A member of the RNA family "Mammalian CPEB3 ribozyme" from Alligator sinensis, 77 nucleotides long. NCBI's taxonomy places the organism under Eukaryota, Tetrapoda, Sauria, Alligatorinae, Alligator. It scores 42 bits against the family's covariance model.
[Rfam]
RNA sequence: UGUUGCAAGUUUGAGGCCACAGCGGAAGCAUUCCCAUCAUGGCCCUGUCAAAUUCCAACAAAUCUGUGAAUUCUGCU
Numbered sequence: 001u002g003u004u005g006c007a008a009g010u011u012u013g014a015g016g017c018c019a020c021a022g023c024g025g026a027a028g029c030a031u032u033c034c035c036a037u038c039a040u041g042g043c044c045c046u047g048u049c050a051a052a053u054u055c056c057a058a059c060a061a062a063u064c065u066g067u068g069a070a071u072u073c074u075g076c077u
Base pairs, nucleotide, nucleotide: 013045015044016043017042018041021077022076023075024074025073026072027071028040049066050065052063053062054061
Rfam's curators write: The mammalian CPEB3 ribozyme is a self cleaving RNA located in the second intron of the CPEB3 gene which belongs to a family of genes regulating messenger RNA polyadenylation.